Rfam assigns this 102-nucleotide RNA from Marinisporobacter balticus to the family "Purine riboswitch aptamer". Pairs were carried over by alignment from the consensus structure, which is taken from published work. NCBI's taxonomy places the organism under Bacteria, Bacillati, Peptostreptococcales, Thermotaleaceae, Marinisporobacter.
RNA sequence: UUAUUCAAUUAAAUAGAAACUCGUAUAAUCCUGGGGAUAUGGCCUGGGAGUUUCUACACUAUAACCUUAAAUUAUAGAGCUAUGAGUGAAAAAUGUUCGGAU
Numbered sequence: 001u002u003a004u005u006c007a008a009u010u011a012a013a014u015a016g017a018a019a020c021u022c023g024u025a026u027a028a029u030c031c032u033g034g035g036g037a038u039a040u041g042g043c044c045u046g047g048g049a050g051u052u053u054c055u056a057c058a059c060u061a062u063a064a065c066c067u068u069a070a071a072u073u074a075u076a077g078a079g080c081u082a083u084g085a086g087u088g089a090a091a092a093a094u095g096u097u098c099g100g101a102u
Base pairs, nucleotide, nucleotide: 019087020086021085022084023083024082025081029049030048031047032046033045034044035043059077060076061075062074063073064072